This 97-nucleotide sequence from Thermasporomyces composti belongs to the Rfam family "Bacterial small signal recognition particle RNA". Its Rfam clan is "SRP clan". Rfam's curators write: The signal recognition particle (SRP) is a universally conserved ribonucleoprotein involved in the co-translational targeting of proteins to membranes. It scores 70 bits against the family's covariance model. The literature on the family includes a 2002 paper in Nucleic Acids Res by Regalia et al., "Prediction of signal recognition particle RNA genes".

RNA sequence: UUCGGCUCCCCGCGCGGCGGCAUCCUGCCCAACCCCCCCAGGGCCGGAAGGCAGCAAGGGUAAGCAGGCUCUGUCGGGUGCGCGGGGAGUCCUCUUG
Numbered sequence: 001u002u003c004g005g006c007u008c009c010c011c012g013c014g015c016g017g018c019g020g021c022a023u024c025c026u027g028c029c030c031a032a033c034c035c036c037c038c039c040a041g042g043g044c045c046g047g048a049a050g051g052c053a054g055c056a057a058g059g060g061u062a063a064g065c066a067g068g069c070u071c072u073g074u075c076g077g078g079u080g081c082g083c084g085g086g087g088a089g090u091c092c093u094c095u096u097g
Stems, first nucleotide, its partner, number of pairs: 004091011015078001018076005024068005035060003043052003